[Rfam]
RNA sequence: GAAUCAAUAAUGCACGGGAACAUGCCACAGUUGGCUGAAUCUGUCUUCUAACAGUUGCUAAUUGCCAGUGUUUCAAAUAUAAUUGAAAUACGAGUACCCAAGAAUAAUUUAAUUCAUUAUAUUUUGGACAGGAUAGGAAGUCCGUUGUCUGUGUUAUCUUUACGAAGAUUGAUAGACUUGGGAUGUCGUCUGAUAGUCUACAUUU
Number, nucleotide and partner (000 for none) at each position: 001g000002a000003a000004u000005c000006a000007a000008u000009a000010a000011u000012g000013c000014a000015c000016g074017g073018g072019a071020a000021c000022a000023u000024g000025c000026c000027a000028c000029a063030g062031u061032u060033g059034g058035c057036u000037g055038a000039a000040u000041c054042u053043g052044u051045c000046u000047u000048c000049u000050a000051a044052c043053a042054g041055u037056u000057g035058c034059u033060a032061a031062u030063u029064g000065c000066c000067a000068g000069u000070g000071u019072u018073u017074c016075a000076a000077a000078u000079a000080u000081a000082a000083u000084u000085g000086a000087a000088a000089u000090a000091c000092g000093a000094g000095u000096a000097c000098c000099c000100a000101a000102g000103a000104a000105u000106a000107a197108u196109u195110u000111a000112a000113u000114u000115c000116a000117u000118u000119a000120u000121a000122u000123u193124u192125u000126g000127g000128a000129c000130a000131g000132g000133a000134u000135a000136g000137g000138a000139a000140g184141u183142c182143c181144g000145u000146u000147g177148u176149c175150u174151g000152u000153g173154u172155u171156a170157u168158c167159u166160u165161u000162a000163c000164g000165a160166a159167g158168a157169u000170u156171g155172a154173u153174a150175g149176a148177c147178u000179u000180g000181g143182g142183a141184u140185g000186u000187c000188g000189u000190c000191u000192g124193a123194u000195a109196g108197u107198c000199u000200a000201c000202a000203u000204u000205u000
Notes:
The family of this 205-nucleotide RNA from Naumovozyma dairenensis is "Small nucleolar RNA snR34". NCBI's taxonomy places the organism under Eukaryota, Fungi, Ascomycota, Saccharomycotina, Naumovozyma dairenensis. The base pairs follow the family's consensus structure, which was predicted with WAR. A search with the family's covariance model found it, with a score of 167 bits.